[Rfam]
RNA sequence: ACAACAACAAUAAAAAAUGCGACAACCCAAUAAAAAUAAGACGUACCGGCUCUGACAUAACAAGAACAACACGGCAGAGGCGCAGCUAACAGAUUUUUUUGAAGUGGAUGGCUUUUCGGGGGCGUGCCCCGCGACCUGACAGAGAACAAUAAAACUACCCCAAGGUAGCGCCCGUCUCGGUUGGAUCAGCAAUGAUAAAGGUCGAUCAGCGCUCAAAAAAAUACGUUUGCUCUUGAUCCCGGAUGGGGAUCGCAACGCAACAAGAGGCAAGGGUCGCCAAAAACAACAAUAGACCACCCUCCAAUAAUAAAAAGAGCACACGCAACAAAAUUUGAGGGGAGCCCAGGCUCCCCUCAGUGCUUGCUGCCCUACUCGUUCUGCUGGUCAU
Dot-bracket structure: ..............................................((.((((......................)))).))..............(((((.........((...................(((((.(................(((((....)))))........).))))).........................))...))))).................(((((.....)))))..............(((..(.(((..................)))....................((((..............(((((((((....))))))))).))))....)..)))..................
Overview
The record is a 388-nucleotide RNA sequence from Pseudomonas sp. 1239, which matches "Pseudomonas sRNA CrcZ" in Rfam. For this family Rfam cites "The Pseudomonas putida Crc global regulator is an RNA binding protein that inhibits translation of the AlkS transcriptional regulator" (Moreno et al., Mol Microbiol, 2007). Rfam links the family to the GO term carbon catabolite repression of transcription. It is annotated as a small RNA. The match comes from Rfam's covariance-model search (336 bits). Taxonomically the source falls in Pseudomonas (Bacteria, Pseudomonadati, Gammaproteobacteria, Pseudomonadaceae).